The family of this 144-nucleotide RNA from Jaculus jaculus is "Small nucleolar RNA SNORA79".
On this family, see Schattner et al., RNA 2006: "A computational screen for mammalian pseudouridylation guide H/ACA RNAs".
Rfam classes the family as an H/ACA-box small nucleolar RNA.
Rfam links the family to the GO terms RNA processing and nucleolus.
Pairs were carried over by alignment from the consensus structure, which was predicted with RNAalifold.
It scores 138 bits against the family's covariance model.
Rfam's curators write: ACA65 (SNORA79) is a member of the H/ACA class of snoRNAs that guide the sites of modification of uridines to pseudouridines.

Nucleotides: 144
Base pairs, nucleotide, nucleotide: 001055002054003053004052005051006050007049008048014042015041016040017039018038020036021035022034069136070135071134072133073132074131081123082122083121084120085119086118087117089115090114094110096108097107098106
Number, partner (000 for none) and nucleotide at each position: 001055u002054g003053a004052u005051g006050a007049c008048u009000g010000u011000u012000c013000u014042u015041c016040c017039u018038a019000u020036u021035g022034c023000c024000u025000u026000u027000a028000g029000g030000c031000c032000u033000a034022g035021c036020a037000c038018u039017a040016g041015g042014a043000u044000u045000u046000u047000a048008g049007g050006u051005c052004a053003u054002c055001a056000u057000a058000a059000a060000u061000u062000a063000a064000a065000a066000u067000u068000u069136g070135a071134u072133u073132u074131u075000c076000c077000u078000u079000a080000c081123u082122c083121a084120g085119a086118g087117a088000u089115u090114a091000u092000u093000a094110g095000c096108a097107u098106a099000a100000u101000g102000g103000a104000a105000u106098u107097a108096u109000c110094u111000g112000u113000a114090u115089a116000u117087u118086c119085u120084c121083u122082g123081a124000c125000a126000u127000u128000u129000g130000u131074g132073g133072a134071g135070u136069c137000a138000a139000a140000c141000a142000a143000u144000u